[Rfam]
This 94-nucleotide RNA sequence from Musa balbisiana belongs to the Rfam family "Plastid-rps12 3UTR RNA".
Rfam describes the family as follows. Plastid rpl20 is a non-coding RNA (ncRNA) recognised in plastids. It was found in the three prime untranslated region (3UTR) of rps12 gene, its 3UTR location sugest a role in transcript maduration.
The source organism's lineage runs through Eukaryota, Spermatophyta, Magnoliopsida, Zingiberales and Musa.
By type it is a cis-regulatory element.
For this family Rfam cites "Retrograde signaling in plants: A critical review focusing on the GUN pathway and beyond" (Richter et al., Plant Commun, 2023).
Rfam 15.1 lists 1,710 matches to the family in 1,426 species.

RNA sequence: GGUUUCCAUUGGUGCACAAUCCAAUCAACUAGAUUUGAGAUGAAAAGCAAUUCCCCAUGGUAGCAAAUCGUUACCAUUAGCGGGGAAAUAGUAU
Numbered sequence: 001g002g003u004u005u006c007c008a009u010u011g012g013u014g015c016a017c018a019a020u021c022c023a024a025u026c027a028a029c030u031a032g033a034u035u036u037g038a039g040a041u042g043a044a045a046a047g048c049a050a051u052u053c054c055c056c057a058u059g060g061u062a063g064c065a066a067a068u069c070g071u072u073a074c075c076a077u078u079a080g081c082g083g084g085g086a087a088a089u090a091g092u093a094u
Stems, first nucleotide, its partner, number of pairs: 009024004053085004057077008